[Rfam]
Nucleotides: 096
Stems, first nucleotide, its partner, number of pairs: 004052006012042002017039002019036001020033005053069006071091001073094001077089003
Number, partner (000 for none) and nucleotide at each position: 001000g002000g003000a004052g005051a006050a007049a008048c009047c010000u011000a012042g013041g014000g015000u016000u017039c018038c019036g020033g021032u022031u023030c024029c025000g026000u027000c028000a029024g030023g031022g032021a033020u034000g035000a036019c037000u038018g039017g040000u041013c042012c043000g044000a045000g046000a047009g048008g049007u050006u051005u052004c053069g054068g055067u056066c057065g058064g059000u060000u061000c062000u063000g064058c065057c066056g067055a068054c069053u070000g071091c072000a073094c074000g075000g076000a077089g078088g079087g080000a081000c082000a083000a084000a085000a086000g087079c088078c089077c090000g091071g092000g093000a094073g095000a096000c
The record is a 96-nucleotide RNA sequence, which matches "Guanidine-I riboswitch aptamer" in Rfam. The pairing is the family consensus, mapped onto this sequence. It is one of the family's seed sequences.